[Rfam]
RNA sequence: UUGUACCAACAAAAAAGUUUAUGAAAACAAUUACAAAUAAUACUUGGUGGUGGAACAAUUUACGUCAGACGUCGUGAACUAAGCUUCCUAUGGUAUUAUUCAAACUAUAAAUAUGAAAGGCUUGUC
Numbered sequence: 001u002u003g004u005a006c007c008a009a010c011a012a013a014a015a016a017g018u019u020u021a022u023g024a025a026a027a028c029a030a031u032u033a034c035a036a037a038u039a040a041u042a043c044u045u046g047g048u049g050g051u052g053g054a055a056c057a058a059u060u061u062a063c064g065u066c067a068g069a070c071g072u073c074g075u076g077a078a079c080u081a082a083g084c085u086u087c088c089u090a091u092g093g094u095a096u097u098a099u100u101c102a103a104a105c106u107a108u109a110a111a112u113a114u115g116a117a118a119g120g121c122u123u124g125u126c
Stems, first nucleotide, its partner, number of pairs: 036100003040096005047089001049087002052084001057080001059078003062072003
Rfam assigns this 126-nucleotide RNA sequence from Flavobacterium sp. KMS to the family "Bacteroidete tryptophan peptide leader RNA". It scores 79 bits against the family's covariance model. The family's consensus secondary structure is taken from published work.